[Rfam]
RNA sequence: CUUGCACUUAUAACUCUUUGGGCCUUACAAUUUUGAUUGAAUGGCUCAAGUCACAAUGUGCAGAUAGAAAUAAAGCUUGUCGCCUUCCCUGACUAGAACAGUGUUGGUGGAAGUGAAUUGAAGCAGUAACAAAC
Numbered sequence: 001c002u003u004g005c006a007c008u009u010a011u012a013a014c015u016c017u018u019u020g021g022g023c024c025u026u027a028c029a030a031u032u033u034u035g036a037u038u039g040a041a042u043g044g045c046u047c048a049a050g051u052c053a054c055a056a057u058g059u060g061c062a063g064a065u066a067g068a069a070a071u072a073a074a075g076c077u078u079g080u081c082g083c084c085u086u087c088c089c090u091g092a093c094u095a096g097a098a099c100a101g102u103g104u105u106g107g108u109g110g111a112a113g114u115g116a117a118u119u120g121a122a123g124c125a126g127u128a129a130c131a132a133a134c
Base pairs, nucleotide, nucleotide: 002063003062004061005060006059007058009056021046022045023044024043026041028039029038030037072127075124076123077122078121084113085112086111087110088109089107090106091105092104093103